This 76-nucleotide RNA from Crocodylus porosus belongs to the Rfam family "Mammalian CPEB3 ribozyme". The family's consensus secondary structure is taken from published work. A search with the family's covariance model found it, with a score of 37 bits. The organism belongs to Crocodylus, within Eukaryota.

RNA sequence: AGUGACAAGUUCGAGAUCAUAGCAGAAGCACUCAUAGUGCAGCCUGUCCGUUUCCAAUGCAACUGUGAAUUCUGCU
Numbered sequence: 001a002g003u004g005a006c007a008a009g010u011u012c013g014a015g016a017u018c019a020u021a022g023c024a025g026a027a028g029c030a031c032u033c034a035u036a037g038u039g040c041a042g043c044c045u046g047u048c049c050g051u052u053u054c055c056a057a058u059g060c061a062a063c064u065g066u067g068a069a070u071u072c073u074g075c076u
Stems, first nucleotide, its partner, number of pairs: 013044001017042001021076007028040003048065001050063003054059001